[Rfam]
RNA sequence: AAUAUACGCUUGUCUCAAAGGUUAAGCCAUGCAUGUCUAAGUACAAACAGAUUUAAUGUGAAACCGCAUAAGGCUCAGUAUAACAGCUAUAAUUUACAAGAUCAUUUAACUAGUUACUUGGAUAACUGUGGAAAAUCUAGAGCUAAUACAUGCAAAAUGCAGGAACCUCGCGGAACCUGUGCAAUUAUUAGUCAAACCAAUCGUCCUCCGUGACGCUGGAGUUGAAAUCUGGAUAAUUUUGUUGAUCGUAUGGUCUCGCACCGACGACAGAUCUUUCAAAUAUCUGCCCUAUCAACUAUUGAUGGUAGUAUAGAGGACUACCAUGGUUGCAACGGGUAACGGGGAAUCAGGGUUCGAUUCCGGAGAGGGAGCCUGAGAAAUGGCUACCACAUCCAAGGAAGGCAGCAGGCGCGUAAAUUACCCAAUCCCGGCACGGGGAGGUAGUGACGAGAAAUAACAAUAUAAGACUCUUUUAUGACGUCUUAUAAUUGGAAUGAGUUGAGCAUAAAUCCUUCAACAAGGAUCAAGUGGAGGGCAAGUCUGGUGCCAGCAGCCGCGGUAAUUCCAGCUCCACUAGCGUAUAUUAAAAUUGUUG
Numbered sequence: 001a002a003u004a005u006a007c008g009c010u011u012g013u014c015u016c017a018a019a020g021g022u023u024a025a026g027c028c029a030u031g032c033a034u035g036u037c038u039a040a041g042u043a044c045a046a047a048c049a050g051a052u053u054u055a056a057u058g059u060g061a062a063a064c065c066g067c068a069u070a071a072g073g074c075u076c077a078g079u080a081u082a083a084c085a086g087c088u089a090u091a092a093u094u095u096a097c098a099a100g101a102u103c104a105u106u107u108a109a110c111u112a113g114u115u116a117c118u119u120g121g122a123u124a125a126c127u128g129u130g131g132a133a134a135a136u137c138u139a140g141a142g143c144u145a146a147u148a149c150a151u152g153c154a155a156a157a158u159g160c161a162g163g164a165a166c167c168u169c170g171c172g173g174a175a176c177c178u179g180u181g182c183a184a185u186u187a188u189u190a191g192u193c194a195a196a197c198c199a200a201u202c203g204u205c206c207u208c209c210g211u212g213a214c215g216c217u218g219g220a221g222u223u224g225a226a227a228u229c230u231g232g233a234u235a236a237u238u239u240u241g242u243u244g245a246u247c248g249u250a251u252g253g254u255c256u257c258g259c260a261c262c263g264a265c266g267a268c269a270g271a272u273c274u275u276u277c278a279a280a281u282a283u284c285u286g287c288c289c290u291a292u293c294a295a296c297u298a299u300u301g302a303u304g305g306u307a308g309u310a311u312a313g314a315g316g317a318c319u320a321c322c323a324u325g326g327u328u329g330c331a332a333c334g335g336g337u338a339a340c341g342g343g344g345a346a347u348c349a350g351g352g353u354u355c356g357a358u359u360c361c362g363g364a365g366a367g368g369g370a371g372c373c374u375g376a377g378a379a380a381u382g383g384c385u386a387c388c389a390c391a392u393c394c395a396a397g398g399a400a401g402g403c404a405g406c407a408g409g410c411g412c413g414u415a416a417a418u419u420a421c422c423c424a425a426u427c428c429c430g431g432c433a434c435g436g437g438g439a440g441g442u443a444g445u446g447a448c449g450a451g452a453a454a455u456a457a458c459a460a461u462a463u464a465a466g467a468c469u470c471u472u473u474u475a476u477g478a479c480g481u482c483u484u485a486u487a488a489u490u491g492g493a494a495u496g497a498g499u500u501g502a503g504c505a506u507a508a509a510u511c512c513u514u515c516a517a518c519a520a521g522g523a524u525c526a527a528g529u530g531g532a533g534g535g536c537a538a539g540u541c542u543g544g545u546g547c548c549a550g551c552a553g554c555c556g557c558g559g560u561a562a563u564u565c566c567a568g569c570u571c572c573a574c575u576a577g578c579g580u581a582u583a584u585u586a587a588a589a590u591u592g593u594u595g
Base pairs, nucleotide, nucleotide: 001585002584003583004582005581006580007579008578009577010576013452014451015450016449019445020412026410027409028408030407031406032405035067036066041064042063047059048058074365075364076363084286085285086284089281090280093279094278099274100273101272102271117152119150120149126142127141129139130138131137159180160179161178162177163176166173167172185236186235187234188233189232198224199223200222201221206215246267247266248265249264251263252262253261254260288336289335290334295327296326297325302324303323304322305321306320307319308318309317340362341361342360343359344355345354346353347352367388368387370385371384372383390401392399393398418443420442421441422440426438427437428436429435430434458491459490460489461487462486463485464484465483466482467481468480469478470477498518499517502514503513528574529573530572531571532570533569541568542567543566544565550557551556
This 595-nucleotide part of an RNA from Aedes aegypti belongs to the Rfam family "Eukaryotic small subunit ribosomal RNA". Clan: SSU clan. Its family is annotated with ribosome and structural constituent of ribosome in the Gene Ontology. A reference for the family is Yusupov et al. (2001), "Crystal structure of the ribosome at 5.5 A resolution", Science. Taxonomically the source falls in Stegomyia (Eukaryota, Neoptera, Eumetabola, Aedini). The base pairs follow the family's consensus structure, which is taken from published work.